RNA sequence: CUGGAGACUAAGGAAAUAGAGUUGUUGGAAUCAAGUUUACUCUGCCCUUAGUUUCCUAUAUAGAAUAGGUCUCGCAUGCAAGAUAAAUUCAAGAACUACUUAUCUUCAAACAGCA
Numbered sequence: 001c002u003g004g005a006g007a008c009u010a011a012g013g014a015a016a017u018a019g020a021g022u023u024g025u026u027g028g029a030a031u032c033a034a035g036u037u038u039a040c041u042c043u044g045c046c047c048u049u050a051g052u053u054u055c056c057u058a059u060a061u062a063g064a065a066u067a068g069g070u071c072u073c074g075c076a077u078g079c080a081a082g083a084u085a086a087a088u089u090c091a092a093g094a095a096c097u098a099c100u101u102a103u104c105u106u107c108a109a110a111c112a113g114c115a
Base pairs, nucleotide, nucleotide: 003056004055005054006053007052008051009050010049011048017044018043019042020041021040022039025034026033027032060103061102062101067097068096070094071093072092074090
Rfam assigns this 115-nucleotide RNA from Erinaceus europaeus to the family "Small Cajal body specific RNA 15". The family's consensus secondary structure was predicted with RNAfold. scaRNAs are a specific class of small nuclear RNAs which localise to the Cajal bodies and guide the modification of RNA polymerase II transcribed spliceosomal RNAs U1, U2, U4, U5 and U12. ACA45 belongs to the H/ACA box class of guide RNAs as it has the predicted hairpin-hinge-hairpin-tail structure, the conserved H/ACA-box motifs and is found associated with GAR1. ACA45 is predicted to guide the pseudouridylation of residue U37 of the U2 spliceosomal snRNA. The organism belongs to Erinaceus, within Eukaryota. The family's RNA type in Rfam is small Cajal body RNA. Rfam links the family to the GO terms Cajal body, nucleolus and RNA processing. A search with the family's covariance model found it, with a score of 70 bits.